[Rfam]
RNA sequence: AGUCAGAAAAGGCAAAGCUGUCGAAAGACGGUGACGCAAAACCACGGGCCUAAAGCGCUGUCGCGCCAUGGUCGCCGGGUUGCCGCU
Numbered sequence: 001a002g003u004c005a006g007a008a009a010a011g012g013c014a015a016a017g018c019u020g021u022c023g024a025a026a027g028a029c030g031g032u033g034a035c036g037c038a039a040a041a042c043c044a045c046g047g048g049c050c051u052a053a054a055g056c057g058c059u060g061u062c063g064c065g066c067c068a069u070g071g072u073c074g075c076c077g078g079g080u081u082g083c084c085g086c087u
Stems, first nucleotide, its partner, number of pairs: 012037002017032006040081004045077003048072003055066004

Shown here is an 87-nucleotide RNA sequence from Salinisphaera sp. Q1T1-3, a member of the family "c-di-GMP-I riboswitch aptamer".
Lineage of the source: Bacteria > Pseudomonadati > Pseudomonadota > Gammaproteobacteria > Salinisphaera.